[Rfam]
RNA: ASpks TB sRNA
Organism: Mangrovihabitans endophyticus
RNA sequence: CUUCAGCGCGCCCAGCAGCAGCGGAGUCGUGCGGUCCUGCCCGUACGUGGCCAGCAGCGCCUGCGCCUC
Numbered sequence: 001c002u003u004c005a006g007c008g009c010g011c012c013c014a015g016c017a018g019c020a021g022c023g024g025a026g027u028c029g030u031g032c033g034g035u036c037c038u039g040c041c042c043g044u045a046c047g048u049g050g051c052c053a054g055c056a057g058c059g060c061c062u063g064c065g066c067c068u069c
Base pairs, nucleotide, nucleotide: 015022016021028065029064030063032059033058037054038053039052041050042049043048